[Rfam]
RNA sequence: AGCGUGGGUGAUGAAAAUCCGACCUUAGGUAGGUCUUUUUUUGGGUCGUUUUGGUUCAAAUCAUAAGAUCUAUCAAUGAUAGGACUUGUCAUAGUUACUCUGACACGCG
Numbered sequence: 001a002g003c004g005u006g007g008g009u010g011a012u013g014a015a016a017a018u019c020c021g022a023c024c025u026u027a028g029g030u031a032g033g034u035c036u037u038u039u040u041u042u043g044g045g046u047c048g049u050u051u052u053g054g055u056u057c058a059a060a061u062c063a064u065a066a067g068a069u070c071u072a073u074c075a076a077u078g079a080u081a082g083g084a085c086u087u088g089u090c091a092u093a094g095u096u097a098c099u100c101u102g103a104c105a106c107g108c109g
Stems, first nucleotide, its partner, number of pairs: 002108005
RNA: Small nucleolar RNA SNORD46